[Rfam]
RNA sequence: GCUGGGACCAGUUGGGACCAGUCAUGGGCAAAAUAAAUAUGUUUUGUCCACUGUUGCAGUCUUCCUAGAGCAAUGUAGAGGUCUCUGUCUGUUUUAGGAGAGAUGACUAAACCGGAUCGUUCCCCUCCAUACAUG
Number, nucleotide and partner (000 for none) at each position: 001g000002c000003u000004g065005g064006g063007a000008c000009c059010a000011g057012u056013u000014g000015g000016g000017a000018c000019c000020a000021g000022u000023c000024a000025u050026g049027g048028g047029c046030a000031a000032a000033a000034u000035a000036a000037a000038u000039a000040u000041g000042u000043u000044u000045u000046g029047u028048c027049c026050a025051c000052u000053g000054u000055u000056g012057c011058a000059g009060u000061c000062u000063u006064c005065c004066u000067a000068g000069a000070g000071c000072a000073a000074u000075g000076u000077a000078g127079a126080g125081g124082u000083c000084u000085c119086u000087g117088u116089c115090u000091g113092u000093u111094u110095u109096a108097g107098g000099a000100g000101a000102g000103a000104u000105g000106a000107c097108u096109a095110a094111a093112c000113c091114g000115g089116a088117u087118c000119g085120u000121u000122c000123c000124c081125c080126u079127c078128c000129a000130u000131a000132c000133a000134u000135g000
The family of this 135-nucleotide RNA sequence from Podiceps cristatus is "Small Cajal body specific RNA 3". The match comes from Rfam's covariance-model search (94 bits). NCBI's taxonomy places the organism under Eukaryota, Amniota, Mirandornithes, Podicipediformes, Podiceps. By type it is a small Cajal body RNA. Rfam describes the family as follows. scaRNAs are a specific class of small nuclear RNAs which localise to the Cajal bodies and guide the modification of RNA polymerase II transcribed spliceosomal RNAs U1, U2, U4, U5 and U12.